[Rfam]
RNA: small nucleolar RNA snoR114
RNA sequence: GAGCAGUGAUGAUAAUCUGCACUAAUUGUUAAUGAUGGGUCAUCACACACAUCUAUGCAGAUGAAAAUAUGUGCUUCUGAGCUC
Numbered sequence: 001g002a003g004c005a006g007u008g009a010u011g012a013u014a015a016u017c018u019g020c021a022c023u024a025a026u027u028g029u030u031a032a033u034g035a036u037g038g039g040u041c042a043u044c045a046c047a048c049a050c051a052u053c054u055a056u057g058c059a060g061a062u063g064a065a066a067a068u069a070u071g072u073g074c075u076u077c078u079g080a081g082c083u084c
Stems, first nucleotide, its partner, number of pairs: 001084004